Nucleotides: 063
Base pairs, nucleotide, nucleotide: 014030015029016028017027018026019025
Number, partner (000 for none) and nucleotide at each position: 001000u002000a003000a004000u005000u006000u007000u008000g009000c010000a011000g012000c013000u014030u015029g016028a017027u018026a019025g020000a021000a022000a023000a024000u025019c026018u027017a028016u029015c030014a031000u032000u033000a034000c035000a036000u037000a038000a039000u040000a041000a042000c043000u044000a045000u046000u047000g048000a049000a050000a051000u052000a053000a054000u055000a056000u057000u058000g059000g060000c061000a062000u063000g